[Rfam]
RNA sequence: GGCACAGUGCCUGCUUGGACCCUCCCCGGUCAGCACAACGGCGUGUCUGCCACCCAACCGACAACGACGUCGC
Numbered sequence: 001g002g003c004a005c006a007g008u009g010c011c012u013g014c015u016u017g018g019a020c021c022c023u024c025c026c027c028g029g030u031c032a033g034c035a036c037a038a039c040g041g042c043g044u045g046u047c048u049g050c051c052a053c054c055c056a057a058c059c060g061a062c063a064a065c066g067a068c069g070u071c072g073c
Base pairs, nucleotide, nucleotide: 028051029050031049032048033047034045035044
Record summary:
narK RNA: a 73-nucleotide RNA from Metapseudomonas furukawaii. Pairs were carried over by alignment from the consensus structure, which is taken from published work. NCBI's taxonomy places the organism under Bacteria, Pseudomonadati, Pseudomonadota, Gammaproteobacteria, Metapseudomonas. Rfam's curators put it in the seed alignment.